[Rfam]
RNA sequence: GAGGAUGGUCGGGCAAUCGCCCCGCACAUAAUUAUGUGCGGGGAGGAAAGUCCGAACACCAACGAGUACCGUGCUUCCUAACGGGAAGAUCCGGGUAACCGGUUAGCCAGUGCCACAGAAAAUAGACUACCCCGCUUUGUGCAGGGAAAAGGUGAAAAGGUGAGGUAAGAGCUCACCGCUCCGGUGGUAACAUUCGGAGGGCUCGGUAAACCUCACGGGGUGCAAGCUCACGCAGACCGUUGUGCUACUCGUCGCAAUACGGUCGGGUGGAGUGCUCGAGCCCCGAAGUAAUUCGGGGCCAGAUAAAUGAUUGCCACCUAACGUAAGUUAGGAGACAGAAUUCGGCUUACAGACUGUCCUCUCUU
Numbered sequence: 001g002a003g004g005a006u007g008g009u010c011g012g013g014c015a016a017u018c019g020c021c022c023c024g025c026a027c028a029u030a031a032u033u034a035u036g037u038g039c040g041g042g043g044a045g046g047a048a049a050g051u052c053c054g055a056a057c058a059c060c061a062a063c064g065a066g067u068a069c070c071g072u073g074c075u076u077c078c079u080a081a082c083g084g085g086a087a088g089a090u091c092c093g094g095g096u097a098a099c100c101g102g103u104u105a106g107c108c109a110g111u112g113c114c115a116c117a118g119a120a121a122a123u124a125g126a127c128u129a130c131c132c133c134g135c136u137u138u139g140u141g142c143a144g145g146g147a148a149a150a151g152g153u154g155a156a157a158a159g160g161u162g163a164g165g166u167a168a169g170a171g172c173u174c175a176c177c178g179c180u181c182c183g184g185u186g187g188u189a190a191c192a193u194u195c196g197g198a199g200g201g202c203u204c205g206g207u208a209a210a211c212c213u214c215a216c217g218g219g220g221u222g223c224a225a226g227c228u229c230a231c232g233c234a235g236a237c238c239g240u241u242g243u244g245c246u247a248c249u250c251g252u253c254g255c256a257a258u259a260c261g262g263u264c265g266g267g268u269g270g271a272g273u274g275c276u277c278g279a280g281c282c283c284c285g286a287a288g289u290a291a292u293u294c295g296g297g298g299c300c301a302g303a304u305a306a307a308u309g310a311u312u313g314c315c316a317c318c319u320a321a322c323g324u325a326a327g328u329u330a331g332g333a334g335a336c337a338g339a340a341u342u343c344g345g346c347u348u349a350c351a352g353a354c355u356g357u358c359c360u361c362u363c364u365u
Base pairs, nucleotide, nucleotide: 001361002360003359004358005357006356007355008354009353010352011350012315013314014313015312016311017310018309020043021042022041023040024039025038026037027036028035048348049347050346052345053344054343055342056341057222058221059220060219064253065252069218070217071216072215073214074088075087076086077085078084089104091102092101093100094099105213106212110211111210112207113206114205127151128150130146131145132144134142135141159177160176161175162174163173164172178202179199180198181197182196183195184193185192186191226273227272228271229270235264236263237262238261239260240259244258246256248254280299281298282297283296284295285294286293287292
RNA: Bacterial RNase P class A